[Rfam]
RNA: Bacterial large subunit ribosomal RNA, nucleotides 801 to 1242
RNA sequence: CUCUCCGAAAUAUAUUUAGGUAUAGCCUCGAGCAUUAGCAUGAAGGGGUAGAGCACUGACAGGGCUAGGGCUGCUUACCGCGGUACCAAACCCUAUCAAACUCCGAAUACUUCAUGUGUAACCUCGGGAGUCAGGCGUAGGGUGAUAAAAUCCUAUGUCGAGAGGGGAACAACCCAGACUAACAGCUAAGGUCCCAAAGUCUUGUCUAAGUGGAAAAGGAUGUGGAGUUGCUGUGACAACCAGGAGGUUGGCUUAGAAGCAGCCAUCCUUUAAAGAAAGCGUAACAGCUCACUGGUCUAGCGAUUCUGCGCCGAAAAUAUAACGGGGCUAAGACAAGCACCGAAGCUUUAGAUUUGGUAUUUAUACCAAGUGGUAGGAGAGCGUUCCAUUCAGCGCUGAAGGUAUACCGGCAAGGAGUACUGGAGCGGAUGGAAGUGAGCAU
Numbered sequence: 001c002u003c004u005c006c007g008a009a010a011u012a013u014a015u016u017u018a019g020g021u022a023u024a025g026c027c028u029c030g031a032g033c034a035u036u037a038g039c040a041u042g043a044a045g046g047g048g049u050a051g052a053g054c055a056c057u058g059a060c061a062g063g064g065c066u067a068g069g070g071c072u073g074c075u076u077a078c079c080g081c082g083g084u085a086c087c088a089a090a091c092c093c094u095a096u097c098a099a100a101c102u103c104c105g106a107a108u109a110c111u112u113c114a115u116g117u118g119u120a121a122c123c124u125c126g127g128g129a130g131u132c133a134g135g136c137g138u139a140g141g142g143u144g145a146u147a148a149a150a151u152c153c154u155a156u157g158u159c160g161a162g163a164g165g166g167g168a169a170c171a172a173c174c175c176a177g178a179c180u181a182a183c184a185g186c187u188a189a190g191g192u193c194c195c196a197a198a199g200u201c202u203u204g205u206c207u208a209a210g211u212g213g214a215a216a217a218g219g220a221u222g223u224g225g226a227g228u229u230g231c232u233g234u235g236a237c238a239a240c241c242a243g244g245a246g247g248u249u250g251g252c253u254u255a256g257a258a259g260c261a262g263c264c265a266u267c268c269u270u271u272a273a274a275g276a277a278a279g280c281g282u283a284a285c286a287g288c289u290c291a292c293u294g295g296u297c298u299a300g301c302g303a304u305u306c307u308g309c310g311c312c313g314a315a316a317a318u319a320u321a322a323c324g325g326g327g328c329u330a331a332g333a334c335a336a337g338c339a340c341c342g343a344a345g346c347u348u349u350a351g352a353u354u355u356g357g358u359a360u361u362u363a364u365a366c367c368a369a370g371u372g373g374u375a376g377g378a379g380a381g382c383g384u385u386c387c388a389u390u391c392a393g394c395g396c397u398g399a400a401g402g403u404a405u406a407c408c409g410g411c412a413a414g415g416a417g418u419a420c421u422g423g424a425g426c427g428g429a430u431g432g433a434a435g436u437g438a439g440c441a442u
Stems, first nucleotide, its partner, number of pairs: 001381006011024005026130001027128006036121001038117008051104001052102002057098003061094004068087002070084005134159010164175003179351004184347003190341003199338001201337006218312002222309010239296005245269003250264003270274001275290001279288002352371008382437001384434007393426002401421005407415002